This 136-nucleotide sequence from Blastococcus mobilis belongs to the Rfam family "c-di-AMP riboswitch aptamer (ydaO/yuaA leader)". A search with the family's covariance model found it, with a score of 57 bits. A reference for the family is Barrick et al. (2004), "New RNA motifs suggest an expanded scope for riboswitches in bacterial genetic control", Proc Natl Acad Sci U S A. Taxonomically the source falls in Blastococcus (Bacteria, Bacillati, Geodermatophilales, Geodermatophilaceae).
Nucleotides: 136
Base pairs, nucleotide, nucleotide: 002016003015018116019115020114021113022112023111028040029039041101042100043099049076051074052073053072054071055070056069057068058067059066060065079095080094081093082092
Number, partner (000 for none) and nucleotide at each position: 001000a002016c003015g004000a005000a006000g007000c008000a009000g010000g011000c012000g013000c014000c015003c016002g017000g018116g019115c020114c021113g022112g023111g024000g025000a026000c027000c028040c029039a030000c031000c032000g033000c034000a035000g036000c037000a038000a039029u040028g041101g042100g043099g044000u045000g046000a047000a048000g049076c050000a051074c052073g053072a054071c055070c056069g057068g058067a059066a060065c061000g062000c063000g064000a065060g066059u067058u068057c069056c070055g071054g072053u073052c074051g075000c076049g077000c078000c079095g080094g081093g082092c083000g084000a085000g086000u087000u088000c089000c090000c091000c092082g093081c094080c095079c096000g097000a098000a099043c100042c101041c102000g103000u104000c105000a106000g107000c108000u109000a110000a111023c112022u113021c114020g115019g116018u117000a118000g119000g120000c121000g122000g123000u124000u125000g126000a127000u128000g129000g130000a131000g132000a133000a134000c135000a136000g